[Rfam]
RNA: mir-344 microRNA precursor family
RNA sequence: GGAUCAGUCAGGCUGCUGGUGAUUCUCCAGGAGUUAUCUGGUCCUGGAUAUAACCACUGCCAGACUGAAUG
Numbered sequence: 001g002g003a004u005c006a007g008u009c010a011g012g013c014u015g016c017u018g019g020u021g022a023u024u025c026u027c028c029a030g031g032a033g034u035u036a037u038c039u040g041g042u043c044c045u046g047g048a049u050a051u052a053a054c055c056a057c058u059g060c061c062a063g064a065c066u067g068a069a070u071g
Stems, first nucleotide, its partner, number of pairs: 007065003011061003017056004022051002027041005